Annotation:
A member of the RNA family "MIR2118 microRNA precursor family" from Aegilops tauschii, 200 nucleotides long. The literature on the family includes a 2009 paper in Nucleic Acids Res by Xue et al., "Characterization and expression profiles of miRNAs in rice seeds". The family has 7 seed sequences and 2,377 matches in Rfam 15.1. Pairs were carried over by alignment from the consensus structure, which was predicted with RNAalifold.
[Rfam]
RNA sequence: GACGGGAAGAGGAAAAAAAGAGGACCUAAGAGCGGUGGGCAUGGGACAUGAUGGAAAGCUAAAGACCUCAGUUCCUCGUCUAACACUGUAAGAUGUUUUCUGUCAAAAGAAAAAAAAACACUGUAAGAUGCUUUGUUUUGAGUUUCCUGAUGCCUCUCAUGCCUAUUGUUCUUUGGUGUUCCUUCCUCUUCCUUCUAGUU
Numbered sequence: 001g002a003c004g005g006g007a008a009g010a011g012g013a014a015a016a017a018a019a020g021a022g023g024a025c026c027u028a029a030g031a032g033c034g035g036u037g038g039g040c041a042u043g044g045g046a047c048a049u050g051a052u053g054g055a056a057a058g059c060u061a062a063a064g065a066c067c068u069c070a071g072u073u074c075c076u077c078g079u080c081u082a083a084c085a086c087u088g089u090a091a092g093a094u095g096u097u098u099u100c101u102g103u104c105a106a107a108a109g110a111a112a113a114a115a116a117a118a119c120a121c122u123g124u125a126a127g128a129u130g131c132u133u134u135g136u137u138u139u140g141a142g143u144u145u146c147c148u149g150a151u152g153c154c155u156c157u158c159a160u161g162c163c164u165a166u167u168g169u170u171c172u173u174u175g176g177u178g179u180u181c182c183u184u185c186c187u188c189u190u191c192c193u194u195c196u197a198g199u200u
Stems, first nucleotide, its partner, number of pairs: 009191005016184002020181003025176002028173007036165011047152003051148001053147002056145004